Y RNA: a 79-nucleotide sequence from Gorilla gorilla. Rfam's curators write: Y RNAs are components of the Ro ribonucleoprotein particle (Ro RNP), in association with Ro60 and La proteins. The Y RNAs and Ro60 and La proteins are well conserved, but the function of the Ro RNP is not known. In humans the RNA component can be one of four small RNAs -- hY1, hY3, hY4 and hY5. It scores 44 bits against the family's covariance model. Pairs were carried over by alignment from the consensus structure, which is taken from published work. Taxonomically the source falls in Gorilla gorilla (Eukaryota, Gnathostomata, Simiiformes, Catarrhini).

[Rfam]
Nucleotides: 079
Base pairs, nucleotide, nucleotide: 001075002074003073004072005071006070008068010067011066015062016058017057018056020054021053026042028040030038031037
Number, partner (000 for none) and nucleotide at each position: 001075a002074g003073u004072u005071g006070g007000u008068c009000c010067a011066a012000g013000g014000g015062u016058u017057a018056u019000g020054g021053g022000u023000u024000a025000u026042u027000a028040u029000u030038a031037a032000g033000c034000u035000g036000a037031u038030u039000a040028a041000c042026a043000u044000u045000g046000u047000u048000u049000c050000c051000c052000c053021c054020c055000a056018a057017u058016a059000a060000c061000c062015a063000a064000g065000c066011u067010u068008g069000u070006c071005u072004a073003g074002c075001u076000u077000a078000a079000a